[Rfam]
RNA: c-di-AMP riboswitch aptamer (ydaO/yuaA leader)
RNA sequence: CACACUUGACCCGUGUUCGGCAGGAGCGGGGGACCCACCAGGUACGACUGCCUGUCCGGUCUCCGUGACAGGCCAGGGGUGCAGCCGCACACCGCGGCCGGGCAGCUCCAGCCCGAACCCGACAGCUGACCUCGCAGGCGCCGGAGAGGAAUG
Dot-bracket structure: ..(.((....((..........)).((((((....(.......................................)(((.....((((.....))))..((((.......))))...))).........)))))).)).).............
Numbered sequence: 001c002a003c004a005c006u007u008g009a010c011c012c013g014u015g016u017u018c019g020g021c022a023g024g025a026g027c028g029g030g031g032g033a034c035c036c037a038c039c040a041g042g043u044a045c046g047a048c049u050g051c052c053u054g055u056c057c058g059g060u061c062u063c064c065g066u067g068a069c070a071g072g073c074c075a076g077g078g079g080u081g082c083a084g085c086c087g088c089a090c091a092c093c094g095c096g097g098c099c100g101g102g103c104a105g106c107u108c109c110a111g112c113c114c115g116a117a118c119c120c121g122a123c124a125g126c127u128g129a130c131c132u133c134g135c136a137g138g139c140g141c142c143g144g145a146g147a148g149g150a151a152u153g
Stems, first nucleotide, its partner, number of pairs: 003140001005138002011024002026135006036076001077120003085097004100114004